[Rfam]
RNA: mir-9223 microRNA precursor family
Organism: Myotis davidii
RNA sequence: GGUGGUCCUCAGGUGACGAACCCCAGAAUCGGGCUCCCUCGUCUCUGGUUCCAGGUGUGUCACCCAAGAACCACU
Number, nucleotide and partner (000 for none) at each position: 001g000002g074003u073004g000005g071006u070007c000008c068009u067010c000011a000012g064013g063014u062015g061016a060017c059018g000019a000020a056021c055022c054023c000024c000025a000026g051027a050028a049029u048030c047031g046032g045033g044034c000035u000036c000037c000038c000039u000040c000041g000042u000043c000044u033045c032046u031047g030048g029049u028050u027051c026052c000053a000054g022055g021056u020057g000058u000059g017060u016061c015062a014063c013064c012065c000066a000067a009068g008069a000070a006071c005072c000073a003074c002075u000